Shown here is a 97-nucleotide RNA sequence from Pseudomonas sp. TAD18, a member of the family "t44 RNA". Lineage of the source: Bacteria > Pseudomonadati > Pseudomonadota > Gammaproteobacteria > Pseudomonas. This family consists of a number of bacterial RNA genes of between 135 and 170 bases in length. It scores 68 bits against the family's covariance model. The family's RNA type in Rfam is small RNA.
RNA sequence: CCCGCUGAGCACAAACCCACACACGUGUCGACACGAUGACCUGGGUGCCUUCAGCUCGAAGCUGCUGGUUGGUCAUUGGGAUACGUGGAGGCCUAAC
Numbered sequence: 001c002c003c004g005c006u007g008a009g010c011a012c013a014a015a016c017c018c019a020c021a022c023a024c025g026u027g028u029c030g031a032c033a034c035g036a037u038g039a040c041c042u043g044g045g046u047g048c049c050u051u052c053a054g055c056u057c058g059a060a061g062c063u064g065c066u067g068g069u070u071g072g073u074c075a076u077u078g079g080g081a082u083a084c085g086u087g088g089a090g091g092c093c094u095a096a097c
Stems, first nucleotide, its partner, number of pairs: 022087008034078008047069003